Rfam assigns this 161-nucleotide RNA from Zea mays to the family "U1 spliceosomal RNA". By type it is a spliceosomal small nuclear RNA.

[Rfam]
RNA sequence: AUACUUACCUAGAUGGGGUCUAUGACUGAUCAAGUAGAGUCAUGGCCUAGGCUAGUGGCCUCCAUUGCACUUGAGAGGAACAUUAGUCUACCAUCUCCUCAAGUAGGAGAGUGGAUAUCAUAAUUUGUGGUAGAGAGGAUACACGUUCGUGCGGUCCCUAC
Dot-bracket structure: ...........(((((((((..(((((..........))))).)))))(((.(.(((..(((............).))..)))..)))).((((((.((.....)).))).))).))))................(((...(.((....)).)...)))..
Record summary: The literature on the family includes a 1997 paper in Nucleic Acids Res by Zwieb, "The uRNA database". Rfam's curators write: U1 is a small nuclear RNA (snRNA) component of the spliceosome (involved in pre-mRNA splicing). Pairs were carried over by alignment from the consensus structure, which is taken from published work. NCBI's taxonomy places the organism under Eukaryota, Mesangiospermae, commelinids, Panicoideae, Zea.